[Rfam]
Nucleotides: 076
Stems, first nucleotide, its partner, number of pairs: 001016004006038006025075003032040001042070003046066007
Number, partner (000 for none) and nucleotide at each position: 001016a002015g003014u004013c005000g006038u007037c008036a009035g010034a011033g012000c013004g014003a015002c016001u017000a018000u019000a020000a021000a022000u023000a024000g025075g026074c027073u028000u029000u030000a031000g032040g033011c034010u035009c036008u037007g038006a039000g040032c041000g042070u043069g044068c045000c046066g047065a048064c049063c050062g051061u052060c053000a054000a055000u056000a057000a058000a059000a060052g061051g062050c063049g064048g065047u066046c067000a068044g069043c070042g071000g072000u073027a074026g075025c076000a